[Rfam]
RNA: Small nucleolar RNA SNORA55
RNA sequence: GCACCUGCUGCUUUCCUGUUCCUCGCUGUGCGGUGCAGGUCUGGGGGCACCCGGUGCUACAGCACAGCAGUGGAAAUCCAGAUGGGUUCUGCUCCACUGGUUUGGGACUUAUCUCUACACCCCUGCAACACCA
Numbered sequence: 001g002c003a004c005c006u007g008c009u010g011c012u013u014u015c016c017u018g019u020u021c022c023u024c025g026c027u028g029u030g031c032g033g034u035g036c037a038g039g040u041c042u043g044g045g046g047g048c049a050c051c052c053g054g055u056g057c058u059a060c061a062g063c064a065c066a067g068c069a070g071u072g073g074a075a076a077u078c079c080a081g082a083u084g085g086g087u088u089c090u091g092c093u094c095c096a097c098u099g100g101u102u103u104g105g106g107a108c109u110u111a112u113c114u115c116u117a118c119a120c121c122c123c124u125g126c127a128a129c130a131c132c133a
Stems, first nucleotide, its partner, number of pairs: 001057005013047006021039002067126004072121001080114008094105003